The record is a 56-nucleotide RNA sequence from Parvularcula maris, which matches "Whalefall-1 RNA" in Rfam. The match comes from Rfam's covariance-model search (38 bits). It is annotated as a small RNA. The base pairs follow the family's consensus structure, which is taken from published work.
RNA sequence: UUACCUCUCCCAAUGGGAGAGGUCGAAGGCUGCCUCGGCAGGCUUCGGGUGAGGGC
Numbered sequence: 001u002u003a004c005c006u007c008u009c010c011c012a013a014u015g016g017g018a019g020a021g022g023u024c025g026a027a028g029g030c031u032g033c034c035u036c037g038g039c040a041g042g043c044u045u046c047g048g049g050u051g052a053g054g055g056c
Stems, first nucleotide, its partner, number of pairs: 004022007025046004030041004